The family of this 173-nucleotide RNA is "Clostridiales-1 RNA". The sequence is in the family's curated seed alignment. Rfam classes the family as a small RNA.
[Rfam]
RNA sequence: GUAAGCCAAGGGAACAAAAGUGCAGGUGCUGUUCGUGCUUGCACGAUAAGGCAUCUGACUUUGGUUCCCGCCAAAAACAUGAAGAAGAAGCGAUUUGCAUUGCAAAUCUGCGGAUUCUGAAUGUUUUUAGAAUUGCGGGAGCAGCGUAGCUGCGUAGCAAUUCGUUGGCUUAC
Numbered sequence: 001g002u003a004a005g006c007c008a009a010g011g012g013a014a015c016a017a018a019a020g021u022g023c024a025g026g027u028g029c030u031g032u033u034c035g036u037g038c039u040u041g042c043a044c045g046a047u048a049a050g051g052c053a054u055c056u057g058a059c060u061u062u063g064g065u066u067c068c069c070g071c072c073a074a075a076a077a078c079a080u081g082a083a084g085a086a087g088a089a090g091c092g093a094u095u096u097g098c099a100u101u102g103c104a105a106a107u108c109u110g111c112g113g114a115u116u117c118u119g120a121a122u123g124u125u126u127u128u129a130g131a132a133u134u135g136c137g138g139g140a141g142c143a144g145c146g147u148a149g150c151u152g153c154g155u156a157g158c159a160a161u162u163c164g165u166u167g168g169c170u171u172a173c
Stems, first nucleotide, its partner, number of pairs: 002172007011068004017062003023057008032048001033046005073128008083118004090111002092108007130163007141153004